A member of the RNA family "Potassium channel RNA editing signal" from Nasonia vitripennis, 114 nucleotides long. The family's RNA type in Rfam is cis-regulatory element. The match comes from Rfam's covariance-model search (90 bits). Pairs were carried over by alignment from the consensus structure, which is taken from published work. Rfam links the family to the GO term adenosine to inosine editing. Rfam describes the family as follows. This family represents a group of sequences related to the human potassium channel Kv1.1 hairpin element which directs the efficient modification of an adenosine to inosine by an adenosine deaminase acting on RNA (ADAR).
RNA sequence: GUCGGCUACGGCGACAUGGUGCCCAAAACUUACGUGGGCAUGUUUGUCGGCGCUCUGUGCGCCCUAGCGGGCGUACUCACAAUCGCCCUGCCGGUGCCCGUGAUCGUCAGCAAC
Numbered sequence: 001g002u003c004g005g006c007u008a009c010g011g012c013g014a015c016a017u018g019g020u021g022c023c024c025a026a027a028a029c030u031u032a033c034g035u036g037g038g039c040a041u042g043u044u045u046g047u048c049g050g051c052g053c054u055c056u057g058u059g060c061g062c063c064c065u066a067g068c069g070g071g072c073g074u075a076c077u078c079a080c081a082a083u084c085g086c087c088c089u090g091c092c093g094g095u096g097c098c099c100g101u102g103a104u105c106g107u108c109a110g111c112a113a114c
Stems, first nucleotide, its partner, number of pairs: 001114002004111001008107004014101002018097001021095002037077002040074001049063003
Dot-bracket structure: ((.(...((((..((..(..((..............((.(........(((.........)))..........).))................)).)..))..))))...).))